The family of this 74-nucleotide RNA sequence from Halalkalibacterium halodurans is "tRNA". The base pairs follow the family's consensus structure, which is taken from published work. Gene Ontology term of the family: triplet codon-amino acid adaptor activity. Transfer RNA (tRNA) molecules are approximately 80 nucleotides in length.
RNA sequence: GGUCCGGUAGUUCAGUUGGUUAGAAUGCCUGCCUGUCACGCAGGAGGUCGCGGGUUCGAGUCCCGUCCGGACCG
Numbered sequence: 001g002g003u004c005c006g007g008u009a010g011u012u013c014a015g016u017u018g019g020u021u022a023g024a025a026u027g028c029c030u031g032c033c034u035g036u037c038a039c040g041c042a043g044g045a046g047g048u049c050g051c052g053g054g055u056u057c058g059a060g061u062c063c064c065g066u067c068c069g070g071a072c073c074g
Stems, first nucleotide, its partner, number of pairs: 001073007010026004028044005050066005